[Rfam]
RNA sequence: GGCUGGUGAGUGUAAUGGUGUUUACAACUAACUGAUCACAACCAGUUAUAGAUUUGUUUGUUCCUUCUCUCACUCCUACUCCUUCACUUGACCAGCCUUAA
Numbered sequence: 001g002g003c004u005g006g007u008g009a010g011u012g013u014a015a016u017g018g019u020g021u022u023u024a025c026a027a028c029u030a031a032c033u034g035a036u037c038a039c040a041a042c043c044a045g046u047u048a049u050a051g052a053u054u055u056g057u058u059u060g061u062u063c064c065u066u067c068u069c070u071c072a073c074u075c076c077u078a079c080u081c082c083u084u085c086a087c088u089u090g091a092c093c094a095g096c097c098u099u100a101a
Base pairs, nucleotide, nucleotide: 001097002096003095004094005093006092007091008089009088012085014080016078017077018076020075026062027061028060030058031057
Dot-bracket structure: (((((((((..(.(.(((.(.....(((.((.........................)).)))............)))).)....)..)).)))))))....